[Rfam]
RNA sequence: AUGUACCCCUAUGUUUUGAUUCUUUGGCAGUUUUAGACCCCAAGGCAAAAUAAAAAAUAAAAAUUAUACGUGGCACCUCACUUAGGGUGCCACGUCAGCGUUGACCGAGUCAACAAUGGACGGGGGUUCAAAACUGCCAAAUAAUCAAAACAUAGGGGGCUGUUU
Numbered sequence: 001a002u003g004u005a006c007c008c009c010u011a012u013g014u015u016u017u018g019a020u021u022c023u024u025u026g027g028c029a030g031u032u033u034u035a036g037a038c039c040c041c042a043a044g045g046c047a048a049a050a051u052a053a054a055a056a057a058u059a060a061a062a063a064u065u066a067u068a069c070g071u072g073g074c075a076c077c078u079c080a081c082u083u084a085g086g087g088u089g090c091c092a093c094g095u096c097a098g099c100g101u102u103g104a105c106c107g108a109g110u111c112a113a114c115a116a117u118g119g120a121c122g123g124g125g126g127u128u129c130a131a132a133a134c135u136g137c138c139a140a141a142u143a144a145u146c147a148a149a150a151c152a153u154a155g156g157g158g159g160c161u162g163u164u165u
Base pairs, nucleotide, nucleotide: 002162003161006158010154011153012152013151014150015149016148017147018146019145020144021143023141024140025139026138027137028136029135030134031133032132033131034130036128037127038126039125040124041123068095069094071092072091073090074089075088076087077086